[Rfam]
RNA sequence: UUAAUAACUUCUAGUACUAGGCGUUACUUAGUAUAACACUAUUAAAGUACGGGGAGUUUCUAAAGCCUCUAUCACCACGGCUAUCUUAAAAGAGAUAGUAUAGUACUCUAGGGUAGUACCUAGGGGGAUGGUAAUAGUAUAGAGAAUGUUAUAAUGGAUAAUCCGCAGCUAAGCGCUACUAAUAGCUUAGCUAUUCAUGCGUGCAGUUUAACGACUAAAUGGUAGUGGGUUCUAUCUUCUAUAGAAGAUAGUACUUAAGAUAUAGUCUCCGCCUAGAGUUAAAAAAUAUAG
Dot-bracket structure: ....((((.((((....)))).))))..........(((((.((...(.((((....(((...............................................................................................)))...)))).)((...((((....(((((.....)))))...))))...))...[.[[[[[..)).))))).((.((((((........)))))).))........]]]]]]......(.(.((....))).)..
Overview
Group I catalytic intron: a 291-nucleotide RNA from Pseudovirgaria hyperparasitica. The match comes from Rfam's covariance-model search (73 bits). The family's consensus secondary structure is taken from published work.